[Rfam]
Nucleotides: 046
Base pairs, nucleotide, nucleotide: 001020002019003018004017005016006015007014008013033045034044035043036042037041
Number, partner (000 for none) and nucleotide at each position: 001020g002019a003018u004017g005016g006015g007014g008013u009000u010000u011000g012000c013008a014007c015006c016005c017004u018003a019002u020001c021000c022000u023000a024000u025000u026000a027000u028000a029000u030000u031000u032000c033045g034044c035043c036042c037041u038000u039000u040000c041037a042036g043035g044034g045033c046000u
This 46-nucleotide RNA from Taibaiella lutea belongs to the Rfam family "Acido-Lenti-1 RNA". It scores 40 bits against the family's covariance model. It is annotated as a small RNA. Lineage of the source: Bacteria > Bacteroidota > Chitinophagales > Chitinophagaceae > Taibaiella. Pairs were carried over by alignment from the consensus structure, which is taken from published work.